The family of this 335-nucleotide part of an RNA from Pseudobythopirellula maris is "Bacterial large subunit ribosomal RNA". The family's consensus secondary structure is taken from published work. A search with the family's covariance model found it, with a score of 2675 bits. Its family is annotated with ribosome and structural constituent of ribosome in the Gene Ontology. The source organism's lineage runs through Bacteria, Planctomycetia, Pirellulales, Lacipirellulaceae and Pseudobythopirellula.

RNA sequence: CGGGAGAACACUGGUUAAGGAACUCUGCAAAAUGGCCCCGUAAGUUCGCGAUAAGGGGCGCCCACGCAAGUGGGCCACAGUAAAUCGAUUCCUCCGACUGUUUAUCAAAAACACAGGUCUCUGCUAACACGUAAGUGGAUGUAUAGAGACUGACGCCUGCCCGGUGCUGGUAGGUUAAGGUAAGAGGUUAGUUUCAUUACGAAGCUUCUGACCGAAGCCCCAGUAAACGGCGGCCGUAACUAUGACGGUCCUAAGGUAGCGAAAUUCCUUGUCGGGUAAGUUCCGACCUGCAUGAAAGGCGUAACGAGAGGAAUACUGUCUCAACCAGUGACCCG
Numbered sequence: 001c002g003g004g005a006g007a008a009c010a011c012u013g014g015u016u017a018a019g020g021a022a023c024u025c026u027g028c029a030a031a032a033u034g035g036c037c038c039c040g041u042a043a044g045u046u047c048g049c050g051a052u053a054a055g056g057g058g059c060g061c062c063c064a065c066g067c068a069a070g071u072g073g074g075c076c077a078c079a080g081u082a083a084a085u086c087g088a089u090u091c092c093u094c095c096g097a098c099u100g101u102u103u104a105u106c107a108a109a110a111a112c113a114c115a116g117g118u119c120u121c122u123g124c125u126a127a128c129a130c131g132u133a134a135g136u137g138g139a140u141g142u143a144u145a146g147a148g149a150c151u152g153a154c155g156c157c158u159g160c161c162c163g164g165u166g167c168u169g170g171u172a173g174g175u176u177a178a179g180g181u182a183a184g185a186g187g188u189u190a191g192u193u194u195c196a197u198u199a200c201g202a203a204g205c206u207u208c209u210g211a212c213c214g215a216a217g218c219c220c221c222a223g224u225a226a227a228c229g230g231c232g233g234c235c236g237u238a239a240c241u242a243u244g245a246c247g248g249u250c251c252u253a254a255g256g257u258a259g260c261g262a263a264a265u266u267c268c269u270u271g272u273c274g275g276g277u278a279a280g281u282u283c284c285g286a287c288c289u290g291c292a293u294g295a296a297a298g299g300c301g302u303a304a305c306g307a308g309a310g311g312a313a314u315a316c317u318g319u320c321u322c323a324a325c326c327a328g329u330g331a332c333c334c335g
Stems, first nucleotide, its partner, number of pairs: 001335004009330008018321003035059005044049001060075006076080001088314007095306002099113003116151008124141001128137003154301004159231003164228002166224005173219003179213002183209006191200002232250006251255001261288001271287006